[Rfam]
RNA: Guanidine-I riboswitch aptamer
RNA sequence: AUGAUAGUUUUCUAGGGUUCCGUAGCGCUAGCUAGUCUGGUCCGAGAGAAAACCACAAAAUGUAUUUUGUGACACGGAAGGAUAAAAGCCUGGGAGAU
Numbered sequence: 001a002u003g004a005u006a007g008u009u010u011u012c013u014a015g016g017g018u019u020c021c022g023u024a025g026c027g028c029u030a031g032c033u034a035g036u037c038u039g040g041u042c043c044g045a046g047a048g049a050a051a052a053c054c055a056c057a058a059a060a061u062g063u064a065u066u067u068u069g070u071g072a073c074a075c076g077g078a079a080g081g082a083u084a085a086a087a088g089c090c091u092g093g094g095a096g097a098u
Base pairs, nucleotide, nucleotide: 007053008052009051010050011049012048015043016042020040021039022037023034024033025032026031054071055070056069057068058067059066060065073093075096079091080090081089